[Rfam]
RNA sequence: ACAGUACAAACUGAGCAGGCAAUGUCUGAUCAUGCGACAUGAAGCCGGGCCGCUUCGGCGGCAGCAGAUGGGUAUCAGGCGCAUCUGUGGGACAGUA
Numbered sequence: 001a002c003a004g005u006a007c008a009a010a011c012u013g014a015g016c017a018g019g020c021a022a023u024g025u026c027u028g029a030u031c032a033u034g035c036g037a038c039a040u041g042a043a044g045c046c047g048g049g050c051c052g053c054u055u056c057g058g059c060g061g062c063a064g065c066a067g068a069u070g071g072g073u074a075u076c077a078g079g080c081g082c083a084u085c086u087g088u089g090g091g092a093c094a095g096u097a
Stems, first nucleotide, its partner, number of pairs: 010096004016091001018046003022040005049062005064088006
RNA: NiCo (Nickel/Cobalt) riboswitch aptamer